Notes:
Rfam assigns this 73-nucleotide sequence from Bacteroides sp. CAG:714 to the family "tRNA". Clan: tRNA clan. Rfam classes the family as a transfer RNA. Rfam links the family to the GO term triplet codon-amino acid adaptor activity. It scores 53 bits against the family's covariance model. Taxonomically the source falls in Bacteroides (Bacteria, Pseudomonadati, Bacteroidota, Bacteroidia).
[Rfam]
RNA sequence: GGUAUCGUGGCGGAAUUGGUAACGCGCCUGUUUGUUAACGGGUAGAUUGCAGGUUCGAAUCCUGCCGGUACCA
Numbered sequence: 001g002g003u004a005u006c007g008u009g010g011c012g013g014a015a016u017u018g019g020u021a022a023c024g025c026g027c028c029u030g031u032u033u034g035u036u037a038a039c040g041g042g043u044a045g046a047u048u049g050c051a052g053g054u055u056c057g058a059a060u061c062c063u064g065c066c067g068g069u070a071c072c073a
Stems, first nucleotide, its partner, number of pairs: 001072007010025003027042005049065005